Shown here is a 216-nucleotide sequence from Staphylococcus sp. HMSC071G07, a member of the family "glmS glucosamine-6-phosphate activated ribozyme aptamer".
RNA sequence: AAUUCAGUUAAAGCGCCAGUACAAAUGCAGUGUCUUAUCCAUUAUUUAAGGUUUAAUAUCAGAAAUCUUAAUAGAUAGGUCGUCUGUAUUUGUAGACGAGGUGGAUAGUUAUCGAGAUUUCGGCGGAUGCUAUCCCGGAUGGUUAGGCUCAUUCGUAAGCUUAAUGAUGAAAACACUAGGGUAACUUAGUGCACAAAGUUAUUAAGCAAGCCUAUA
Numbered sequence: 001a002a003u004u005c006a007g008u009u010a011a012a013g014c015g016c017c018a019g020u021a022c023a024a025a026u027g028c029a030g031u032g033u034c035u036u037a038u039c040c041a042u043u044a045u046u047u048a049a050g051g052u053u054u055a056a057u058a059u060c061a062g063a064a065a066u067c068u069u070a071a072u073a074g075a076u077a078g079g080u081c082g083u084c085u086g087u088a089u090u091u092g093u094a095g096a097c098g099a100g101g102u103g104g105a106u107a108g109u110u111a112u113c114g115a116g117a118u119u120u121c122g123g124c125g126g127a128u129g130c131u132a133u134c135c136c137g138g139a140u141g142g143u144u145a146g147g148c149u150c151a152u153u154c155g156u157a158a159g160c161u162u163a164a165u166g167a168u169g170a171a172a173a174c175a176c177u178a179g180g181g182u183a184a185c186u187u188a189g190u191g192c193a194c195a196a197a198g199u200u201a202u203u204a205a206g207c208a209a210g211c212c213u214a215u216a
Stems, first nucleotide, its partner, number of pairs: 020094008029085001103135005112123004136155006160206007174191007
Dot-bracket structure: ...................((((((((.(.......................................................).))))))))........(((((....((((....)))).......)))))((((((........))))))....(((((((.......(((((((....)))))))........)))))))..........
The base pairs follow the family's consensus structure, which is taken from published work.
NCBI's taxonomy places the organism under Bacteria, Bacillati, Bacillota, Caryophanales, Staphylococcus.
Gene Ontology terms of the family: regulation of gene expression and catalytic activity.
About the family: This entry contains a glucosamine-6-phosphate activated ribozyme that is found in the mRNA for GlmS. GlmS is an enzyme that uses fructose-6-phosphate and glutamine to generate glucosamine-6-phosphate. The ribozyme catalyses self cleavage of the glmS mRNA that is thought to regulate GlmS activity.